A member of the RNA family "Acido-Lenti-1 RNA" from Planctomycetaceae bacterium SCGC AG-212-F19, 46 nucleotides long. Lineage of the source: Bacteria > Planctomycetota > Planctomycetia > Planctomycetales > Planctomycetaceae. It is annotated as a small RNA. A search with the family's covariance model found it, with a score of 48 bits. The base pairs follow the family's consensus structure, which is taken from published work.

RNA sequence: CCCAGCACUGAAGUGCUGGGCUAUUUUCAAUUGCCCCUCCGGGGCA
Number, nucleotide and partner (000 for none) at each position: 001c020002c019003c018004a017005g016006c015007a014008c013009u000010g000011a000012a000013g008014u007015g006016c005017u004018g003019g002020g001021c000022u000023a000024u000025u000026u000027u000028c000029a000030a000031u000032u000033g045034c044035c043036c042037c041038u000039c000040c000041g037042g036043g035044g034045c033046a000